[Rfam]
RNA sequence: UCUAUAAGCAAGCCGAAUCUCCAAUUGGAGUACGGGGGAUUUUUUUAGGGGUGAAUCUUCUUUUAAUAGAAGUAGGGGACCUCAACCCGAACCCGUCAACUAACCUCGGAGGCAAAAGAGGAGGAUAAU
Numbered sequence: 001u002c003u004a005u006a007a008g009c010a011a012g013c014c015g016a017a018u019c020u021c022c023a024a025u026u027g028g029a030g031u032a033c034g035g036g037g038g039a040u041u042u043u044u045u046u047a048g049g050g051g052u053g054a055a056u057c058u059u060c061u062u063u064u065a066a067u068a069g070a071a072g073u074a075g076g077g078g079a080c081c082u083c084a085a086c087c088c089g090a091a092c093c094c095g096u097c098a099a100c101u102a103a104c105c106u107c108g109g110a111g112g113c114a115a116a117a118g119a120g121g122a123g124g125a126u127a128a129u
Base pairs, nucleotide, nucleotide: 012113013112014111019030020029033108034107035106036105037104042048043047049094050093051092057072058071059070060069075088076087077086